About this RNA:
Shown here is a 124-nucleotide sequence from Subsaximicrobium wynnwilliamsii, a member of the family "Bacteroidete tryptophan peptide leader RNA". Taxonomically the source falls in Subsaximicrobium (Bacteria, Pseudomonadati, Bacteroidota, Flavobacteriaceae). The match comes from Rfam's covariance-model search (58 bits). Pairs were carried over by alignment from the consensus structure, which is taken from published work.

[Rfam]
RNA sequence: CUUUGAGCUUUAUAAAAACUAUGAACACAAUAUUAAAUCAUACUUGGUGGUGGAAUUUUCAGGAAUCGCAUUCGUGAAACAUCGCUAUUGUAUCUUUUAAUUGAACAUACAAAAAAGGCUUGUC
Number, nucleotide and partner (000 for none) at each position: 001c000002u000003u000004u000005g000006a000007g000008c000009u000010u000011u000012a000013u000014a000015a000016a000017a000018a000019c000020u000021a000022u000023g000024a000025a000026c000027a000028c000029a000030a000031u000032a000033u000034u000035a000036a097037a096038u000039c000040a093041u092042a091043c090044u000045u000046g000047g000048u000049g086050g085051u084052g083053g000054a000055a000056u000057u079058u078059u077060c076061a075062g000063g073064a072065a071066u000067c000068g000069c000070a000071u065072u064073c063074g000075u061076g060077a059078a058079a057080c000081a000082u000083c052084g051085c050086u049087a000088u000089u000090g043091u042092a041093u040094c000095u000096u037097u036098u000099a000100a000101u000102u000103g000104a000105a000106c000107a000108u000109a000110c000111a000112a000113a000114a000115a000116a000117g000118g000119c000120u000121u000122g000123u000124c000